Notes
Ribosomal protein L10 leader: a 119-nucleotide RNA sequence from Ligilactobacillus pobuzihii. Taxonomically the source falls in Ligilactobacillus (Bacteria, Bacillati, Bacillota, Bacilli). By type it is a cis-regulatory leader. About the family: This family is a putative r-protein leader autoregulatory structure found in B. subtilis and other low-GC Gram-positive bacteria. It is located in the 5' untranslated regions of mRNAs encoding ribosomal proteins L10 and L12 (rplJ-rplL). The base pairs follow the family's consensus structure, which was predicted with CMfinder.
[Rfam]
RNA sequence: UUUUUGUAUAUGAUUCUACCUAAGACUCAGGUGGCUUAAGCCUUAAUAUCCUGCCGAGGAGUAAAGUAAUUUAUUCUCUCUCUGUGUCUUGGUGGAUACGGAGCUUUUUUAUUUGUAUA
Numbered sequence: 001u002u003u004u005u006g007u008a009u010a011u012g013a014u015u016c017u018a019c020c021u022a023a024g025a026c027u028c029a030g031g032u033g034g035c036u037u038a039a040g041c042c043u044u045a046a047u048a049u050c051c052u053g054c055c056g057a058g059g060a061g062u063a064a065a066g067u068a069a070u071u072u073a074u075u076c077u078c079u080c081u082c083u084g085u086g087u088c089u090u091g092g093u094g095g096a097u098a099c100g101g102a103g104c105u106u107u108u109u110u111a112u113u114u115g116u117a118u119a
Stems, first nucleotide, its partner, number of pairs: 028053004033042003080103009